[Rfam]
RNA sequence: UUACAGAACGUUUUAACAAAUAAACUGUUUUUGCCUCUCCGACAAAGAACCAUUUGUUCUUUGACAGAAAAGGACAAAACAGUUUAUUAGUUAAAACGUAUUGUAAC
Numbered sequence: 001u002u003a004c005a006g007a008a009c010g011u012u013u014u015a016a017c018a019a020a021u022a023a024a025c026u027g028u029u030u031u032u033g034c035c036u037c038u039c040c041g042a043c044a045a046a047g048a049a050c051c052a053u054u055u056g057u058u059c060u061u062u063g064a065c066a067g068a069a070a071a072g073g074a075c076a077a078a079a080c081a082g083u084u085u086a087u088u089a090g091u092u093a094a095a096a097c098g099u100a101u102u103g104u105a106a107c
Stems, first nucleotide, its partner, number of pairs: 001106006011096007019088010030068004035063001048058003
Annotation:
Rfam assigns this 107-nucleotide RNA sequence from Plutella xylostella to the family "mir-8517 microRNA precursor family". Lineage of the source: Eukaryota > Insecta > Dicondylia > Plutellidae > Plutella.